[Rfam]
RNA sequence: GGUCAUGAGUGCCAGCGUCAAGCCCCGGCUUGCUGGCCGGCAACCCUCCUGUCGCGGCGGGGUGCUCCGGGUGACGACCCGGUCGGCCCGCGCCCGCGGUGCCGGCAAGCGCGGACC
Numbered sequence: 001g002g003u004c005a006u007g008a009g010u011g012c013c014a015g016c017g018u019c020a021a022g023c024c025c026c027g028g029c030u031u032g033c034u035g036g037c038c039g040g041c042a043a044c045c046c047u048c049c050u051g052u053c054g055c056g057g058c059g060g061g062g063u064g065c066u067c068c069g070g071g072u073g074a075c076g077a078c079c080c081g082g083u084c085g086g087c088c089c090g091c092g093c094c095c096g097c098g099g100u101g102c103c104g105g106c107a108a109g110c111g112c113g114g115a116c117c
Stems, first nucleotide, its partner, number of pairs: 001079004009038001011037006021030002039066003044062003048057002082106006088099004
RNA: SAM (S-adenosyl methionine) riboswitch aptamer